[Rfam]
RNA: Bacterial RNase P class A
Nucleotides: 384
Stems, first nucleotide, its partner, number of pairs: 002379009011369001013339007021051002024048006056367003060364005065243004072276004077239005082096005097111001098109004112234002117232002119228002134173002136169003142166001181199006200223001202220004206215003247296004257287006267281005303322008
Number, partner (000 for none) and nucleotide at each position: 001000c002379g003378a004377g005376u006375u007374g008373g009372u010371c011369a012000a013339g014338a015337c016336a017335a018334u019333c020000g021051c022050c023000g024048c025047u026046u027045g028044u029043u030000g031000g032000c033000c034000u035000u036000u037000u038000g039000g040000u041000a042000c043029a044028a045027c046026a047025a048024g049000g050022g051021g052000a053000g054000g055000a056367a057366a058365g059000u060364c061363c062362g063361g064360g065243c066242u067241c068240c069000a070000a071000u072276g073275g074274g075273c076000a077239g078238g079237g080236u081235g082096c083095c084094a085093g086092a087000u088000a089000a090000c091000g092086u093085c094084u095083g096082g097111g098109c099108g100107g101106c102000g103000u104000g105000a106101g107100c108099c109098g110000a111097c112234g113233a114000c115000a116000a117232g118231u119228g120227c121000a122000g123000c124000a125000g126000a127000g128000a129000g130000a131000a132000g133000a134173c135172c136169g137168c138167c139000u140000a141000a142166g143000u144000a145000u146000a147000g148000u149000u150000g151000u152000u153000u154000c155000g156000a157000c158000a159000a160000c161000u162000u163000u164000a165000c166142c167138g168137g169136u170000a171000a172135g173134g174000g175000u176000g177000a178000a179000a180000g181199g182198g183197u184196g185195c186194g187000g188000u189000a190000a191000g192000a193000g194186c195185g196184c197183a198182c199181c200223g201000g202220g203219c204218c205217a206215c207214u208213g209000g210000u211000a212000a213208c214207a215206g216000u217205u218204g219203g220202c221000a222000g223200c224000a225000g226000g227120g228119u229000a230000a231118a232117c233113u234112c235081c236080a237079c238078c239077c240068g241067g242066a243065g244000c245000a246000a247296g248295a249294c250293c251000a252000a253000a254000u255000a256000g257287g258286g259285u260284u261283c262282c263000u264000u265000a266000c267281g268280g269279c270278g271277c272000g273075g274074c275073c276072c277271g278270c279269g280268u281267u282262g283261g284260a285259a286258c287257c288000g289000g290000g291000u292000a293250g294249g295248u296247u297000g298000c299000u300000u301000g302000a303322g304321c305320c306319a307318g308317u309316g310315a311000g312000c313000g314000a315310u316309u317308g318307c319306u320305g321304g322303c323000c324000u325000a326000g327000a328000u329000g330000a331000a332000u333019g334018a335017u336016u337015g338014u339013c340000a341000c342000c343000u344000u345000u346000u347000u348000a349000a350000g351000g352000u353000u354000a355000c356000a357000g358000a359000a360064c361063c362062c363061g364060g365058c366057u367056u368000a369011u370000u371010g372009a373008c374007c375006a376005a377004c378003u379002c380000a381000c382000u383000u384000u